[Rfam]
RNA: 7SK RNA
Organism: Urocitellus parryii
RNA sequence: GGAUGUGAGGGCGAUCUGGCUGCGACAUCUGUCACCCCAUUGAUCGCCAGGGUUGAUUCGGCUGAUCUGGCUGGCUAGGCGGGUGUCCCCUUCCUCCCUCACCGCUCCAUGUGCGUCCCUCCCGAAGCUGCGCGCUCGGUCGAAGAGGACGACCUUCCCCGAUAGAGGAGGACCGGUCUUCGGUCAAGGGUAUACGAGUAGCUGAGCUCCCCUGCUAGAACCUCCAAACAAGCUCUCAAAAAUGACAUUAAGGGCAUUGAGAUUAUUCACUGUGCCAUAUAACAGGAAAUAAGUCAAAUGGCUAUCUGGUAUUUUUU
Numbered sequence: 001g002g003a004u005g006u007g008a009g010g011g012c013g014a015u016c017u018g019g020c021u022g023c024g025a026c027a028u029c030u031g032u033c034a035c036c037c038c039a040u041u042g043a044u045c046g047c048c049a050g051g052g053u054u055g056a057u058u059c060g061g062c063u064g065a066u067c068u069g070g071c072u073g074g075c076u077a078g079g080c081g082g083g084u085g086u087c088c089c090c091u092u093c094c095u096c097c098c099u100c101a102c103c104g105c106u107c108c109a110u111g112u113g114c115g116u117c118c119c120u121c122c123c124g125a126a127g128c129u130g131c132g133c134g135c136u137c138g139g140u141c142g143a144a145g146a147g148g149a150c151g152a153c154c155u156u157c158c159c160c161g162a163u164a165g166a167g168g169a170g171g172a173c174c175g176g177u178c179u180u181c182g183g184u185c186a187a188g189g190g191u192a193u194a195c196g197a198g199u200a201g202c203u204g205a206g207c208u209c210c211c212c213u214g215c216u217a218g219a220a221c222c223u224c225c226a227a228a229c230a231a232g233c234u235c236u237c238a239a240a241a242a243u244g245a246c247a248u249u250a251a252g253g254g255c256a257u258u259g260a261g262a263u264u265a266u267u268c269a270c271u272g273u274g275c276c277a278u279a280u281a282a283c284a285g286g287a288a289a290u291a292a293g294u295c296a297a298a299u300g301g302c303u304a305u306c307u308g309g310u311a312u313u314u315u316u317u
Base pairs, nucleotide, nucleotide: 001108002107003106005102006101007100008099009098010097011096013093014092018090019089024087025086026085027084028083029082030081031080032079033078035074036073037070038069039068042067043066044065045064046062047061048060116171117170118168119167120166121165122139123138124137125136127135128134140162141161142160147158148157149156201264203262207261208260210259213256214255215254224253225252230248232246287317288316289315291312293310294309295308296305